[Rfam]
RNA: mir-146 microRNA precursor family
Organism: Sphenodon punctatus
RNA sequence: AUGUAUCCUCAAGCUUUGAGAACUGAAUUCCUUGGGUUGUAAUUGAAACACUGUCAGACCCAUGGGGCUCAGUUCUUCAGCUUGGAUAGCUUUG
Numbered sequence: 001a002u003g004u005a006u007c008c009u010c011a012a013g014c015u016u017u018g019a020g021a022a023c024u025g026a027a028u029u030c031c032u033u034g035g036g037u038u039g040u041a042a043u044u045g046a047a048a049c050a051c052u053g054u055c056a057g058a059c060c061c062a063u064g065g066g067g068c069u070c071a072g073u074u075c076u077u078c079a080g081c082u083u084g085g086a087u088a089g090c091u092u093u094g
Base pairs, nucleotide, nucleotide: 009085010084012082013081014080019076020075021074022073023072024071025070026069034061035060036059037058